RNA sequence: CCAAUGUGGAUACCCCUGGGAGGUUACUCUUCCAGGCUCGUCCAGGAGGCACAGGGGAGCAUAAGGCUCUGUCCCAUGAUGCACAAUCCCUUUCCAUAGCACUGGAGACAAGCCAGUCCCUUGAGUCUGUGCCUGAGCACUCCUAUGGCUUCUCAGAGUCCUAUAAAUAAUGACUGAGGAGACAAUCCAUUCAAGAAACAUCU
Numbered sequence: 001c002c003a004a005u006g007u008g009g010a011u012a013c014c015c016c017u018g019g020g021a022g023g024u025u026a027c028u029c030u031u032c033c034a035g036g037c038u039c040g041u042c043c044a045g046g047a048g049g050c051a052c053a054g055g056g057g058a059g060c061a062u063a064a065g066g067c068u069c070u071g072u073c074c075c076a077u078g079a080u081g082c083a084c085a086a087u088c089c090c091u092u093u094c095c096a097u098a099g100c101a102c103u104g105g106a107g108a109c110a111a112g113c114c115a116g117u118c119c120c121u122u123g124a125g126u127c128u129g130u131g132c133c134u135g136a137g138c139a140c141u142c143c144u145a146u147g148g149c150u151u152c153u154c155a156g157a158g159u160c161c162u163a164u165a166a167a168u169a170a171u172g173a174c175u176g177a178g179g180a181g182a183c184a185a186u187c188c189a190u191u192c193a194a195g196a197a198a199c200a201u202c203u
Stems, first nucleotide, its partner, number of pairs: 001105003005101003008043003013040001015036003019030004046097001048095002055090004059084001062081002064077001132195001134193004149181006158168002

Rfam assigns this 203-nucleotide RNA sequence from Molossus molossus to the family "Small nucleolar RNA SNORA73 family". Rfam links the family to the GO terms RNA processing and nucleolus. Rfam describes the family as follows. U17 (SNORA73A and SNORA73B) also known as E1 belongs to the H/ACA class of small nucleolar RNAs (snoRNAs). Vertebrate U17 is intron-encoded and ranges in length from 200-230 nucleotides, longer than most snoRNAs. It is one of the most abundant snoRNAs in human cells and is essential for the cleavage of pre-rRNA within the 5' external transcribed spacer (ETS). This cleavage leads to the formation of 18S rRNA. Regions of the U17 RNA are complementary to rRNA and act as guides for RNA/RNA interactions, although these regions do not seem to be well conserved between organisms. Pairs were carried over by alignment from the consensus structure, which is taken from published work. Rfam 15.1 lists 2,326 matches to the family in 660 species. Taxonomically the source falls in Molossus (Eukaryota, Chordata, Sarcopterygii, Yangochiroptera).